[Rfam]
RNA sequence: UGCCCCACAUCGCUCAGACACCCCUUCCUGUGCUGUAUUAAUCCAGAUAAGAAAAUCUCUUCUAAUGAGGAGUGAUAUAGUUCUGAACUCUCUAGAGCCAUAAUUAGAGCAAACUAAUUGAAGUUGUGUUUUGACACACUUUCCAAAUUCACGGGUACUGCAUGACAUAUUCACAACACUGCUGCUGCACAGCCAUGGCGACAGCAAAAUCAUUAGGCUAAUAAGGCUGAUUUGCAUUCUUAUCACGCCAGCAGCACGCUGCUCAACGCCGUUUCAACCGGGGCUCCUUCACUCGCCAAGCUUCCACCGAAAGAUAUUAACAGUAAUUAUUAGUACUUUAGUGGAAUCUCUGAUGGCAAGGA
Numbered sequence: 001u002g003c004c005c006c007a008c009a010u011c012g013c014u015c016a017g018a019c020a021c022c023c024c025u026u027c028c029u030g031u032g033c034u035g036u037a038u039u040a041a042u043c044c045a046g047a048u049a050a051g052a053a054a055a056u057c058u059c060u061u062c063u064a065a066u067g068a069g070g071a072g073u074g075a076u077a078u079a080g081u082u083c084u085g086a087a088c089u090c091u092c093u094a095g096a097g098c099c100a101u102a103a104u105u106a107g108a109g110c111a112a113a114c115u116a117a118u119u120g121a122a123g124u125u126g127u128g129u130u131u132u133g134a135c136a137c138a139c140u141u142u143c144c145a146a147a148u149u150c151a152c153g154g155g156u157a158c159u160g161c162a163u164g165a166c167a168u169a170u171u172c173a174c175a176a177c178a179c180u181g182c183u184g185c186u187g188c189a190c191a192g193c194c195a196u197g198g199c200g201a202c203a204g205c206a207a208a209a210u211c212a213u214u215a216g217g218c219u220a221a222u223a224a225g226g227c228u229g230a231u232u233u234g235c236a237u238u239c240u241u242a243u244c245a246c247g248c249c250a251g252c253a254g255c256a257c258g259c260u261g262c263u264c265a266a267c268g269c270c271g272u273u274u275c276a277a278c279c280g281g282g283g284c285u286c287c288u289u290c291a292c293u294c295g296c297c298a299a300g301c302u303u304c305c306a307c308c309g310a311a312a313g314a315u316a317u318u319a320a321c322a323g324u325a326a327u328u329a330u331u332a333g334u335a336c337u338u339u340a341g342u343g344g345a346a347u348c349u350c351u352g353a354u355g356g357c358a359a360g361g362a
Stems, first nucleotide, its partner, number of pairs: 036355005042345004049338003057072006077330006084323001088097003107286004120142004125138005154260002158254001183200005204248002217235002220232003

The record is a 362-nucleotide sequence from Nyctiprogne leucopyga, which matches "ncRNA Repressor of NFAT (nuclear factor of activated T cells)" in Rfam. The family's RNA type in Rfam is non-coding RNA gene. The family has 24 seed sequences and 522 matches in Rfam 15.1. A search with the family's covariance model found it, with a score of 316 bits.